[Rfam]
RNA sequence: GUCUAUGAUGAUUUAUCCGUUGUAUGAGAUCUAGAUUUCCUCAAGCCCUGUUUUCAGGGAGAACCUACUUGGGAAGCUACAUUAUUCAUGAAAUUACUGGAUUUUACUGAGAC
Numbered sequence: 001g002u003c004u005a006u007g008a009u010g011a012u013u014u015a016u017c018c019g020u021u022g023u024a025u026g027a028g029a030u031c032u033a034g035a036u037u038u039c040c041u042c043a044a045g046c047c048c049u050g051u052u053u054u055c056a057g058g059g060a061g062a063a064c065c066u067a068c069u070u071g072g073g074a075a076g077c078u079a080c081a082u083u084a085u086u087c088a089u090g091a092a093a094u095u096a097c098u099g100g101a102u103u104u105u106a107c108u109g110a111g112a113c
Base pairs, nucleotide, nucleotide: 001113002112003111046059047058048057049056050055
The record is a 113-nucleotide RNA sequence from Durio zibethinus, which matches "Small nucleolar RNA Z278" in Rfam.
Rfam's curators write: snoZ278 is a C/D box small nucleolar RNA. Its methylation guide targets have not been reported.
The source organism's lineage runs through Eukaryota, Embryophyta, Gunneridae, malvids and Durio.
For this family Rfam cites "The high diversity of snoRNAs in plants: identification and comparative study of 120 snoRNA genes from Oryza sativa" (Chen et al., Nucleic Acids Res, 2003).